[Rfam]
RNA sequence: GACCCGCCCCAGCGAUUGCAGCGGCAUCCUUUGCUGCAGCGUUAGCGAAGGCAAAGAUAUAGCGGAAAGCGCGGCGGCUU
Numbered sequence: 001g002a003c004c005c006g007c008c009c010c011a012g013c014g015a016u017u018g019c020a021g022c023g024g025c026a027u028c029c030u031u032u033g034c035u036g037c038a039g040c041g042u043u044a045g046c047g048a049a050g051g052c053a054a055a056g057a058u059a060u061a062g063c064g065g066a067a068a069g070c071g072c073g074g075c076g077g078c079u080u
Base pairs, nucleotide, nucleotide: 012072013071014070016068017067021063022062026058027057028056032053033052034051035050037045
This 80-nucleotide RNA from Flavobacterium fontis belongs to the Rfam family "Flavo-1 RNA".
NCBI's taxonomy places the organism under Bacteria, Pseudomonadati, Bacteroidota, Flavobacteriaceae, Flavobacterium.
The family's consensus secondary structure is taken from published work.